[Rfam]
RNA sequence: UGCACUUACUACUGUAAGUUGCUCUGGAUGAAAGCAUCUGCUAAAUGACGUAUA
Numbered sequence: 001u002g003c004a005c006u007u008a009c010u011a012c013u014g015u016a017a018g019u020u021g022c023u024c025u026g027g028a029u030g031a032a033a034g035c036a037u038c039u040g041c042u043a044a045a046u047g048a049c050g051u052a053u054a
Base pairs, nucleotide, nucleotide: 013043014041015040016039020036021035022034023033025031
The family of this 54-nucleotide RNA from Oncorhynchus tshawytscha is "UnaL2 LINE 3' element". Pairs were carried over by alignment from the consensus structure, which is taken from published work. NCBI's taxonomy places the organism under Eukaryota, Gnathostomata, Euteleostomi, Neopterygii, Oncorhynchus. Rfam classes the family as a cis-regulatory element. The family has 30 seed sequences and 493,311 matches in Rfam 15.1.